[Rfam]
RNA sequence: AAAGCCCAGUCUCCAUGCACAGCCGCGGUGGGAACUUGUUCCCAUGAGCGGUUAUGCAUGAGAGACGCUACCCCGAAUGAGCAAAAAAGCCAUGCGAACGAAGAGAGCGGGGCGAUUUGCGAAUGCGGGGAAGGAUUGCGGGAGUGCGCAGCACGGAGCAAUCCGUGGGCUUU
Numbered sequence: 001a002a003a004g005c006c007c008a009g010u011c012u013c014c015a016u017g018c019a020c021a022g023c024c025g026c027g028g029u030g031g032g033a034a035c036u037u038g039u040u041c042c043c044a045u046g047a048g049c050g051g052u053u054a055u056g057c058a059u060g061a062g063a064g065a066c067g068c069u070a071c072c073c074c075g076a077a078u079g080a081g082c083a084a085a086a087a088a089g090c091c092a093u094g095c096g097a098a099c100g101a102a103g104a105g106a107g108c109g110g111g112g113c114g115a116u117u118u119g120c121g122a123a124u125g126c127g128g129g130g131a132a133g134g135a136u137u138g139c140g141g142g143a144g145u146g147c148g149c150a151g152c153a154c155g156g157a158g159c160a161a162u163c164c165g166u167g168g169g170c171u172u173u
Stems, first nucleotide, its partner, number of pairs: 001173007010065004014060006021053006030043005071130005077124002081120004089113003093109003133164007144154004